[Rfam]
RNA sequence: ACGUCACCUCCGCUCAAUCCGGCCUCGGCCGGAGCCGGGGACCCACUCAGUAAUCCGGGGUGAAUCGGGACGGACGCCGGGAGGCGUCGGGACCGUAGGGCGACCUUUCCGCCCGAACCCGUCAGCUAACCCGGUCGGCGGCCCACGGAAGGAGU
Numbered sequence: 001a002c003g004u005c006a007c008c009u010c011c012g013c014u015c016a017a018u019c020c021g022g023c024c025u026c027g028g029c030c031g032g033a034g035c036c037g038g039g040g041a042c043c044c045a046c047u048c049a050g051u052a053a054u055c056c057g058g059g060g061u062g063a064a065u066c067g068g069g070a071c072g073g074a075c076g077c078c079g080g081g082a083g084g085c086g087u088c089g090g091g092a093c094c095g096u097a098g099g100g101c102g103a104c105c106u107u108u109c110c111g112c113c114c115g116a117a118c119c120c121g122u123c124a125g126c127u128a129a130c131c132c133g134g135u136c137g138g139c140g141g142c143c144c145a146c147g148g149a150a151g152g153a154g155u
Stems, first nucleotide, its partner, number of pairs: 011140004018033005034135006044057001058120003066095003098114004
Overview:
The record is a 155-nucleotide RNA sequence from Streptomyces sp. DvalAA-14, which matches "c-di-AMP riboswitch aptamer (ydaO/yuaA leader)" in Rfam. Gene Ontology terms of the family: cyclic-di-AMP binding and regulation of gene expression. A search with the family's covariance model found it, with a score of 72 bits.